The record is a 250-nucleotide sequence from Anaeromicropila herbilytica, which matches "T-box leader" in Rfam.
The source organism's lineage runs through Bacteria, Bacillota, Clostridia, Lachnospirales and Anaeromicropila.
It scores 126 bits against the family's covariance model.
The base pairs follow the family's consensus structure, which is taken from published work.
[Rfam]
RNA sequence: ACAAAGGCAAUGAUGAGAAAGAGUACAUAUUUUUGAAAUAUCAGAGAGAAGAUGGUUGGUGCAAAUCUUUAUGGAAAAUAUAUGGAAGCAGCCUCUAAGCUAUGAACCGAACAAGAGAUUAAGUAGGCUUCAUCGGAGAAUCCACCGUUAUUAGGAGAUCAUAUUCUUGUAGUGAUUAAUAGAGUAUGAGAUAAGUGCAGAGCAUUGCUCUGAAUUUAGGUGGUAACACGGACAAUAGUUCGCCCUAAAC
Number, nucleotide and partner (000 for none) at each position: 001a000002c000003a000004a000005a000006g000007g100008c099009a000010a000011u000012g000013a000014u000015g095016a094017g093018a000019a000020a000021g000022a000023g000024u000025a000026c084027a083028u082029a081030u080031u000032u000033u000034u000035g000036a000037a000038a072039u071040a000041u000042c000043a000044g000045a000046g000047a000048g070049a069050a068051g067052a066053u065054g000055g000056u000057u000058g000059g000060u000061g000062c000063a000064a000065a053066u052067c051068u050069u049070u048071a039072u038073g000074g000075a000076a000077a000078a000079u000080a030081u029082a028083u027084g026085g000086a000087a000088g000089c000090a000091g000092c000093c017094u016095c015096u000097a000098a000099g008100c007101u000102a000103u132104g131105a130106a129107c127108c126109g000110a000111a000112c000113a000114a000115g000116a000117g000118a000119u000120u000121a000122a000123g000124u000125a000126g108127g107128c000129u106130u105131c104132a103133u000134c147135g146136g145137a000138g000139a000140a000141u000142c000143c000144a000145c136146c135147g134148u000149u000150a000151u000152u000153a000154g000155g000156a000157g000158a000159u000160c000161a000162u000163a000164u000165u000166c000167u000168u000169g000170u000171a000172g000173u000174g000175a000176u000177u000178a000179a000180u000181a000182g000183a000184g000185u000186a000187u000188g000189a000190g000191a000192u000193a000194a000195g000196u000197g000198c212199a211200g210201a209202g208203c207204a000205u000206u000207g203208c202209u201210c200211u199212g198213a000214a000215u000216u000217u247218a246219g245220g244221u000222g000223g000224u000225a000226a000227c000228a000229c242230g241231g240232a239233c000234a000235a000236u000237a000238g000239u232240u231241c230242g229243c000244c220245c219246u218247a217248a000249a000250c000